This 60-nucleotide sequence from Aurantiacibacter rhizosphaerae belongs to the Rfam family "terC RNA". It is annotated as a cis-regulatory element. NCBI's taxonomy places the organism under Bacteria, Pseudomonadati, Alphaproteobacteria, Sphingomonadales, Aurantiacibacter.
RNA sequence: GAUGCGGACCGGGCCCCUCUGGCGAGUGCUCAUUUGCCCUCGUGAUGUCGGACCGCAUCG
Number, nucleotide and partner (000 for none) at each position: 001g000002a000003u000004g000005c000006g054007g053008a000009c051010c050011g049012g048013g000014c000015c000016c000017c000018u000019c000020u000021g000022g043023c042024g041025a040026g039027u000028g037029c036030u000031c000032a000033u000034u000035u000036g029037c028038c000039c026040u025041c024042g023043u022044g000045a000046u000047g000048u012049c011050g010051g009052a000053c007054c006055g000056c000057a000058u000059c000060g000